[Rfam]
RNA sequence: GCCCAGGUGGCGAAAUUGGUAGACGCACUGUGUUCAGGUCGCAGCGUCCGAAAGGAUGUGCUGGUUCGAAUCCAGUCCUGGGCA
Numbered sequence: 001g002c003c004c005a006g007g008u009g010g011c012g013a014a015a016u017u018g019g020u021a022g023a024c025g026c027a028c029u030g031u032g033u034u035c036a037g038g039u040c041g042c043a044g045c046g047u048c049c050g051a052a053a054g055g056a057u058g059u060g061c062u063g064g065u066u067c068g069a070a071u072c073c074a075g076u077c078c079u080g081g082g083c084a
Stems, first nucleotide, its partner, number of pairs: 001083007010026003028044005060076005
RNA: tRNA